[Rfam]
RNA sequence: AUAGAGUAUUCAGAAUUGCAUUAUGCAAUACCAACCGAGUGCAGACACCGCGGUGGUAAAUUAAUACGGGUUUUCGACCAAAAUAAACGUUUGAU
Numbered sequence: 001a002u003a004g005a006g007u008a009u010u011c012a013g014a015a016u017u018g019c020a021u022u023a024u025g026c027a028a029u030a031c032c033a034a035c036c037g038a039g040u041g042c043a044g045a046c047a048c049c050g051c052g053g054u055g056g057u058a059a060a061u062u063a064a065u066a067c068g069g070g071u072u073u074u075c076g077a078c079c080a081a082a083a084u085a086a087a088c089g090u091u092u093g094a095u
Stems, first nucleotide, its partner, number of pairs: 006067005015029006030057003035053003039048002043090001069079004
The family of this 95-nucleotide sequence from Sphingobacterium thalpophilum is "SAM-I/IV (S-adenosyl methionine) riboswitch aptamer". The match comes from Rfam's covariance-model search (52 bits). Lineage of the source: Bacteria > Sphingobacteriia > Sphingobacteriales > Sphingobacteriaceae > Sphingobacterium.